[Rfam]
RNA sequence: CCCGCCACUGGACCGGUCUGACCCGAUGGCCGAGUUCAGUCCAGUGGAGGCUCAGAGCGACCCGGCUUUAGGAAACAGGGCGGCCCGCGCCGUGGACCGCUCUGUGCCGAAAAGCCCGGAACACCA
Numbered sequence: 001c002c003c004g005c006c007a008c009u010g011g012a013c014c015g016g017u018c019u020g021a022c023c024c025g026a027u028g029g030c031c032g033a034g035u036u037c038a039g040u041c042c043a044g045u046g047g048a049g050g051c052u053c054a055g056a057g058c059g060a061c062c063c064g065g066c067u068u069u070a071g072g073a074a075a076c077a078g079g080g081c082g083g084c085c086c087g088c089g090c091c092g093u094g095g096a097c098c099g100c101u102c103u104g105u106g107c108c109g110a111a112a113a114g115c116c117c118g119g120a121a122c123a124c125c126a
Base pairs, nucleotide, nucleotide: 005047006046007045008044009043010042018034019033022029023028062119063118064117065116066114067113068112069111071108072107076104077103078102079101080100081099085095086094
RNA: Small nucleolar RNA SNORA65
Organism: Poecilia formosa